[Rfam]
RNA: Mammalian CPEB3 ribozyme
Organism: Crocodylus porosus
RNA sequence: ACAAGUUUGAGGCCAUAGCACAAGCACUUACAGCACAGCCUUCUCAGAUUCCAAUGAAUCUGUGAAUUCUGCU
Numbered sequence: 001a002c003a004a005g006u007u008u009g010a011g012g013c014c015a016u017a018g019c020a021c022a023a024g025c026a027c028u029u030a031c032a033g034c035a036c037a038g039c040c041u042u043c044u045c046a047g048a049u050u051c052c053a054a055u056g057a058a059u060c061u062g063u064g065a066a067u068u069c070u071g072c073u
Base pairs, nucleotide, nucleotide: 010041011040012039013038017073018072019071020070022068023067024036045062046061047060048059049058050057051056